Description: The family of this 176-nucleotide RNA sequence from Paremcibacter congregatus is "Group II catalytic intron D1-D4-3". Pairs were carried over by alignment from the consensus structure. It scores 142 bits against the family's covariance model.
RNA sequence: UCCGGGGCGACCCGGAAUCUGAAGGAAGCUGUAGGCAAAGUUCCGGCCUGACGAACAGGAAUCGUAUAUGAGGCGACCACAUCCGGGCGAGGGAUCCUGACGACCCAAAGCCCAAUAGUCAUCCAGGAGGAUGUGGGCGUAGAUGCGGCGGGUAUAUGGAACGAAGGUCGUGCACC
Numbered sequence: 001u002c003c004g005g006g007g008c009g010a011c012c013c014g015g016a017a018u019c020u021g022a023a024g025g026a027a028g029c030u031g032u033a034g035g036c037a038a039a040g041u042u043c044c045g046g047c048c049u050g051a052c053g054a055a056c057a058g059g060a061a062u063c064g065u066a067u068a069u070g071a072g073g074c075g076a077c078c079a080c081a082u083c084c085g086g087g088c089g090a091g092g093g094a095u096c097c098u099g100a101c102g103a104c105c106c107a108a109a110g111c112c113c114a115a116u117a118g119u120c121a122u123c124c125a126g127g128a129g130g131a132u133g134u135g136g137g138c139g140u141a142g143a144u145g146c147g148g149c150g151g152g153u154a155u156a157u158g159g160a161a162c163g164a165a166g167g168u169c170g171u172g173c174a175c176c
Base pairs, nucleotide, nucleotide: 001016002015003014004013005012006011028176030174031173032172035168036167040162041161042160043159044158045157046153047152048151049150050149062148063147064146065145066144067143073140074139075138077136078135079134080133081132082131083130085113086112087111088110091106092105093104